[Rfam]
A member of the RNA family "Histidine operon leader" from Photobacterium profundum, 136 nucleotides long. Lineage of the source: Bacteria > Pseudomonadota > Gammaproteobacteria > Vibrionales > Photobacterium profundum. At least 6 amino acid operons are known to be regulated by attenuation. In each a leader sequence of 150-200 bp is found upstream of the first gene in the operon. This leader sequence can assume two different secondary structures known as the terminator and the anti-terminator structure. In each case the leader also codes for very short peptide sequence that is rich in the end product amino acid of the operon. The terminator structure is recognised as a termination signal for RNA polymerase and the operon is not transcribed. This structure forms when the cell has an excess of the regulatory amino acid and ribosome movement over the leader transcript is not impeded. When there is a deficiency of the charged tRNA of the regulatory amino acid the ribosome translating the leader peptide stalls and the antiterminator structure can form. This allows RNA polymerase to transcribe the operon. In the Rfam alignment the consensus structure is of the terminator structure. The literature on the family includes a 1982 paper in Annu Rev Genet by Kolter and Yanofsky, "Attenuation in amino acid biosynthetic operons". The sequence is in the family's curated seed alignment. Gene Ontology term of the family: histidine biosynthetic process.
RNA sequence: ACAUCACCAUCAUCAUCCUGACUAGUCUUUCGGGAGGAUACGCCUCACUCUGGAAGACAGCCAAAAAAUCUUCCAGUGUUUGAUAAAAUAAAGAAUUCAAACCCUCGGAGAACAUCACUUCCGAGGGUUUUUGCGU
Number, nucleotide and partner (000 for none) at each position: 001a000002c000003a000004u000005c000006a000007c000008c000009a000010u047011c000012a039013u038014c037015a000016u000017c034018c033019u032020g031021a030022c000023u000024a000025g000026u000027c000028u000029u000030u021031c020032g019033g018034g017035a000036g000037g014038a013039u012040a000041c000042g000043c000044c000045u000046c000047a010048c000049u000050c076051u075052g074053g073054a072055a071056g070057a069058c000059a000060g000061c000062c000063a000064a000065a000066a000067a000068a000069u057070c056071u055072u054073c053074c052075a051076g050077u000078g000079u000080u000081u000082g000083a000084u000085a000086a000087a000088a000089u000090a000091a000092a000093g000094a000095a000096u000097u000098c000099a130100a129101a128102c127103c126104c125105u124106c123107g122108g121109a120110g118111a000112a000113c000114a000115u000116c000117a000118c110119u000120u109121c108122c107123g106124a105125g104126g103127g102128u101129u100130u099131u000132u000133g000134c000135g000136u000